[Rfam]
RNA sequence: GGCAGAUCAGUAGUUUUCUGGGAUUAUAAAGUAGGGGAUUAAUGCACAAAUGCAAAAAAUAAGUCCUCUUUUGCAACCCACAAGUCAUUGUUCAGAAUGACUUUUGAUAUAUGUAAGAAGAAAUAUU
Numbered sequence: 001g002g003c004a005g006a007u008c009a010g011u012a013g014u015u016u017u018c019u020g021g022g023a024u025u026a027u028a029a030a031g032u033a034g035g036g037g038a039u040u041a042a043u044g045c046a047c048a049a050a051u052g053c054a055a056a057a058a059a060u061a062a063g064u065c066c067u068c069u070u071u072u073g074c075a076a077c078c079c080a081c082a083a084g085u086c087a088u089u090g091u092u093c094a095g096a097a098u099g100a101c102u103u104u105u106g107a108u109a110u111a112u113g114u115a116a117g118a119a120g121a122a123a124u125a126u127u
Base pairs, nucleotide, nucleotide: 002053003052004051007048011044013039014038015037016036017035018034019033020032025030063124064123067120069118070117071116072115073114079106080105082103083102084101085100086099087098088097
RNA: Small nucleolar RNA SNORA40
Organism: Fukomys damarensis